[Rfam]
RNA sequence: GCCGCUUUAGCUCAGUCGGUAGAGCGUUUCACUCGUAAUGAAAAGGUCGUCGGUUCGAUUCCGACAAGCGGCU
Numbered sequence: 001g002c003c004g005c006u007u008u009a010g011c012u013c014a015g016u017c018g019g020u021a022g023a024g025c026g027u028u029u030c031a032c033u034c035g036u037a038a039u040g041a042a043a044a045g046g047u048c049g050u051c052g053g054u055u056c057g058a059u060u061c062c063g064a065c066a067a068g069c070g071g072c073u
Stems, first nucleotide, its partner, number of pairs: 001072007010025004027043005049065005
RNA: tRNA